[Rfam]
RNA sequence: GCCGAGACUAGAGUCACAUCUGGACACUGCCUGUUGUUCUGGUGUGCUAGAGUACUCGGAUAGUAACCACUAAUCUAUAUUCACUGACUGUUUCUGUUCUUGACUCAGUCAGUCACCAGGUUAGUGACAAGG
Numbered sequence: 001g002c003c004g005a006g007a008c009u010a011g012a013g014u015c016a017c018a019u020c021u022g023g024a025c026a027c028u029g030c031c032u033g034u035u036g037u038u039c040u041g042g043u044g045u046g047c048u049a050g051a052g053u054a055c056u057c058g059g060a061u062a063g064u065a066a067c068c069a070c071u072a073a074u075c076u077a078u079a080u081u082c083a084c085u086g087a088c089u090g091u092u093u094c095u096g097u098u099c100u101u102g103a104c105u106c107a108g109u110c111a112g113u114c115a116c117c118a119g120g121u122u123a124g125u126g127a128c129a130a131g132g
Stems, first nucleotide, its partner, number of pairs: 002059005007053003012048002015046006023038004070124007083113005089107002093103002
RNA: Small nucleolar RNA SNORA3/SNORA45 family